[Rfam]
Nucleotides: 145
Stems, first nucleotide, its partner, number of pairs: 025043003044086010061076005
Number, partner (000 for none) and nucleotide at each position: 001000g002000c003000c004000g005000u006000u007000g008000u009000c010000a011000u012000u013000g014000g015000g016000g017000a018000g019000u020000a021000g022000c023000c024000a025043u026042c027041u028000u029000c030000g031000g032000c033000c034000c035000c036000g037000c038000c039000g040000a041027a042026g043025a044086g045085g046084c047083c048082g049081c050080g051079u052078c053077a054000a055000c056000a057000a058000a059000c060000u061076u062075g063074a064073g065072g066000a067000g068000c069000u070000u071000u072065c073064c074063u075062c076061a077053u078052g079051g080050c081049g082048c083047g084046g085045u086044c087000a088000g089000c090000g091000g092000c093000c094000g095000g096000c097000a098000u099000u100000g101000c102000c103000g104000g105000c106000g107000c108000c109000g110000c111000c112000a113000a114000g115000c116000g117000a118000g119000a120000c121000c122000u123000u124000u125000g126000g127000c128000c129000a130000c131000g132000a133000u134000g135000c136000g137000u138000u139000u140000g141000c142000c143000g144000c145000c

Shown here is a 145-nucleotide sequence from Chromobacterium sp. LK11, a member of the family "Manganese Mn2+ riboswitch aptamer (yybP-ykoY)". A search with the family's covariance model found it, with a score of 58 bits. The organism belongs to Chromobacterium, within Bacteria. About the family: This RNA was originally discovered in E. coli during a large scale screen and was named SraF. The family was later found to exist upstream of related families of protein genes in many bacteria, including the the yybP and ykoK genes in B. subtilis. The specific functions of these proteins are unknown, but this structured RNA element may be involved in their genetic regulation as a riboswitch.